[Rfam]
RNA sequence: CUAACUUCGCUACAGGAUCAAGUGUAGUAUCUGUUCUUCAUAGUUUAAUCGCUGUGACCGGUCUACGGACCGUCUCUCAUGAUUAUUCUACUUUUUGGAACUGGCUGGGAGAUGCUCUGGGCUUGCUCAUCAUCUUCUGGCACAGUGUCGCUCGUAUUGCACUACUUCGGGCUGACGCGAAUCACU
Numbered sequence: 001c002u003a004a005c006u007u008c009g010c011u012a013c014a015g016g017a018u019c020a021a022g023u024g025u026a027g028u029a030u031c032u033g034u035u036c037u038u039c040a041u042a043g044u045u046u047a048a049u050c051g052c053u054g055u056g057a058c059c060g061g062u063c064u065a066c067g068g069a070c071c072g073u074c075u076c077u078c079a080u081g082a083u084u085a086u087u088c089u090a091c092u093u094u095u096u097g098g099a100a101c102u103g104g105c106u107g108g109g110a111g112a113u114g115c116u117c118u119g120g121g122c123u124u125g126c127u128c129a130u131c132a133u134c135u136u137c138u139g140g141c142a143c144a145g146u147g148u149c150g151c152u153c154g155u156a157u158u159g160c161a162c163u164a165c166u167u168c169g170g171g172c173u174g175a176c177g178c179g180a181a182u183c184a185c186u
Stems, first nucleotide, its partner, number of pairs: 001015001038057006059072005104141008118129004145178005150172005
Background
Shown here is a 186-nucleotide RNA sequence from Aureobasidium melanogenum, a member of the family "U2 spliceosomal RNA". It scores 109 bits against the family's covariance model. The family's consensus secondary structure is taken from published work. Gene Ontology terms of the family: mRNA branch site recognition, U2 snRNP and pre-mRNA branch point binding. From the family's description: U2 is a small nuclear RNA (snRNA) component of the spliceosome (involved in pre-mRNA splicing). Complementary binding between U2 snRNA (in an area lying towards the 5' end but 3' to hairpin I) and the branchpoint sequence (BPS) of the intron results the bulging out of an unpaired adenosine, on the BPS, which initiates a nucleophilic attack at the intronic 5' splice site, thus starting the first of two transesterification reactions that mediate splicing.